[Rfam]
RNA sequence: AUCGCUUCUCAGCCUUUUGGCUAAGAUCAAGUAUAGUAUCUGUUCCUAUCAGUUUAAUAUCUGAUAUGUCCUCUAUCCGAGGACAAUAUAUUAAAUGGAUUUUUGGAAUUAGGAGAUGGAAUAGAAGCUUGCUCCAUCCACCCCACUCGUCGAUCUGGUAUUGCGAUACUUCCAGGAACUGUGCACCUGCU
Numbered sequence: 001a002u003c004g005c006u007u008c009u010c011a012g013c014c015u016u017u018u019g020g021c022u023a024a025g026a027u028c029a030a031g032u033a034u035a036g037u038a039u040c041u042g043u044u045c046c047u048a049u050c051a052g053u054u055u056a057a058u059a060u061c062u063g064a065u066a067u068g069u070c071c072u073c074u075a076u077c078c079g080a081g082g083a084c085a086a087u088a089u090a091u092u093a094a095a096u097g098g099a100u101u102u103u104u105g106g107a108a109u110u111a112g113g114a115g116a117u118g119g120a121a122u123a124g125a126a127g128c129u130u131g132c133u134c135c136a137u138c139c140a141c142c143c144c145a146c147u148c149g150u151c152g153a154u155c156u157g158g159u160a161u162u163g164c165g166a167u168a169c170u171u172c173c174a175g176g177a178a179c180u181g182u183g184c185a186c187c188u189g190c191u
Stems, first nucleotide, its partner, number of pairs: 007026003011022004047066006068084006112144002115141001118138002124135001126133002148183003152179001154176005
This 191-nucleotide RNA sequence from Panthera leo belongs to the Rfam family "U2 spliceosomal RNA". Pairs were carried over by alignment from the consensus structure, which is taken from published work. A search with the family's covariance model found it, with a score of 163 bits. The organism belongs to Panthera, within Eukaryota. Its family is annotated with mRNA branch site recognition, U2 snRNP and pre-mRNA branch point binding in the Gene Ontology. By type it is a spliceosomal small nuclear RNA.